Rfam assigns this 60-nucleotide RNA to the family "Glutamine riboswitch aptamer (glnA leader)". The sequence is in the family's curated seed alignment.
RNA sequence: AUCGUUCAAUUUAAGUUAGUCUUAAAUCGGAAGUAGGUCUUUUGACUGAAGGAACGCAUG
Numbered sequence: 001a002u003c004g005u006u007c008a009a010u011u012u013a014a015g016u017u018a019g020u021c022u023u024a025a026a027u028c029g030g031a032a033g034u035a036g037g038u039c040u041u042u043u044g045a046c047u048g049a050a051g052g053a054a055c056g057c058a059u060g
Stems, first nucleotide, its partner, number of pairs: 003056005009027007030057001036047003